[Rfam]
RNA sequence: GCGCCAUUAGCUCAAUUGGUAGAGCAGCUGACUCUUAAUCAGCGGGUUGUAGGUUCAAGUCCUACAUGGCGUA
Numbered sequence: 001g002c003g004c005c006a007u008u009a010g011c012u013c014a015a016u017u018g019g020u021a022g023a024g025c026a027g028c029u030g031a032c033u034c035u036u037a038a039u040c041a042g043c044g045g046g047u048u049g050u051a052g053g054u055u056c057a058a059g060u061c062c063u064a065c066a067u068g069g070c071g072u073a
Base pairs, nucleotide, nucleotide: 001072002071003070004069005068006067007066010025011024012023013022027043028042029041030040031039049065050064051063052062053061
The family of this 73-nucleotide RNA sequence from Nocardioides dongxiaopingii is "tRNA".
Rfam's curators write: Transfer RNA (tRNA) molecules are approximately 80 nucleotides in length.
The family's RNA type in Rfam is transfer RNA.